[Rfam]
The record is a 45-nucleotide sequence, which matches "eL15-Euryarchaeota ribosomal protein leader" in Rfam. The family's RNA type in Rfam is cis-regulatory leader. The base pairs follow the family's consensus structure, which is taken from published work. A reference for the family is Eckert and Weinberg (2020), "Discovery of 20 novel ribosomal leader candidates in bacteria and archaea", BMC Microbiol.
RNA sequence: ACGGAUGUCGUUCCGUUGGGAUGUAACAGAUGGUUGAACCACAAA
Numbered sequence: 001a002c003g004g005a006u007g008u009c010g011u012u013c014c015g016u017u018g019g020g021a022u023g024u025a026a027c028a029g030a031u032g033g034u035u036g037a038a039c040c041a042c043a044a045a
Stems, first nucleotide, its partner, number of pairs: 001016005017041003025035003